RNA sequence: GGGUGUUCGUGCGAAGAGGCACGGGCAGGUUGUAGCGCUGGUCGGGCCGCCAGCG
Numbered sequence: 001g002g003g004u005g006u007u008c009g010u011g012c013g014a015a016g017a018g019g020c021a022c023g024g025g026c027a028g029g030u031u032g033u034a035g036c037g038c039u040g041g042u043c044g045g046g047c048c049g050c051c052a053g054c055g
Base pairs, nucleotide, nucleotide: 005026006025007024008023009022010021011020012019036055037054038053039052040051041050042049
The family of this 55-nucleotide RNA sequence from Aminobacter sp. J15 is "nhaA-I RNA". NCBI's taxonomy places the organism under Bacteria, Pseudomonadota, Hyphomicrobiales, Phyllobacteriaceae, Aminobacter. Rfam describes the family as follows. Acidobacteria, Alphaproteobacteria, Betaproteobacteria and Gammaproteobacteria, Verrucomicrobia, cand. division NC10.